[Rfam]
RNA sequence: GAAACUUGCAGAAGGCUGUCCCUAGUACGAGAGGACCGGGACGGACGUACCUCUAGUGCGCCAGUUGUCACGCCAGUGGCACGGCUGGUUGGCUACGUACGGAAGGGAUAACCGCUGAAAGCAUCUAAGCGGGAAGCCUGUUUUAAGAUGAGGUUUCAAUAUCAGGUGCCCGGUAGACCACCGGGUUGAUAGGCCAGAACUGGACAUACCGCAAGGUCAUGCAGGUGACUGGUACUAAUCCACCGAACA
Dot-bracket structure: (((((((..((((..(((((((...............))))))).(((((...(((....(((((((((((....))))))..)))))....))).)))))...(((....(((((...........)))))....))).))))......)))))))....(..(((((((((.......)))))....((((((((.((.....(((((....))).))....))..))))).)))...)))).)...
A member of the RNA family "Bacterial large subunit ribosomal RNA" from Corynebacterium gerontici, 249 nucleotides of a longer RNA. It scores 2585 bits against the family's covariance model.